[Rfam]
RNA: THF (Tetrahydrofolate) riboswitch aptamer
Organism: Tepidimicrobium xylanilyticum
RNA sequence: GACAGAGUAGAUAAUAUGCGUAAAGUGUUAGAGGAUGGAACGUUGCCUCUAAACGAAAAGCUUCGGCUUGCGACAUAUUAUCGCGUUCGCUGUC
Numbered sequence: 001g002a003c004a005g006a007g008u009a010g011a012u013a014a015u016a017u018g019c020g021u022a023a024a025g026u027g028u029u030a031g032a033g034g035a036u037g038g039a040a041c042g043u044u045g046c047c048u049c050u051a052a053a054c055g056a057a058a059a060g061c062u063u064c065g066g067c068u069u070g071c072g073a074c075a076u077a078u079u080a081u082c083g084c085g086u087u088c089g090c091u092g093u094c
Base pairs, nucleotide, nucleotide: 001094002093003092004091005090010082011081012080013079014078015077016076017075018074019072020071021070025054026053028052029051030050031049032048033047034046038088039087040086041085042084058069059068060067061066